Shown here is a 90-nucleotide sequence from Nitrincola tibetensis, a member of the family "t44 RNA".
RNA sequence: CGUAAAGCACAUUUAACACACACACUUAUCGGCACAUACUUUCUGGGUGCUGCGCUUGCAGUGGAAAGAUGGGAUAGGUGGAGGUUAAAC
Numbered sequence: 001c002g003u004a005a006a007g008c009a010c011a012u013u014u015a016a017c018a019c020a021c022a023c024a025c026u027u028a029u030c031g032g033c034a035c036a037u038a039c040u041u042u043c044u045g046g047g048u049g050c051u052g053c054g055c056u057u058g059c060a061g062u063g064g065a066a067a068g069a070u071g072g073g074a075u076a077g078g079u080g081g082a083g084g085u086u087a088a089a090c
Stems, first nucleotide, its partner, number of pairs: 023080008035071003039068006049062005
Description:
The family's consensus secondary structure was predicted with LocARNA. The match comes from Rfam's covariance-model search (70 bits). About the family: This family consists of a number of bacterial RNA genes of between 135 and 170 bases in length. The t44 gene has been identified in several species of enteric bacteria but homologs have also been identified in Pseudomonas and Coxiella species. The t44 gene is found between the map and rpsB genes in all species in the full alignment apart from Shigella flexneri. The function of this RNA is unknown. Rfam classes the family as a small RNA.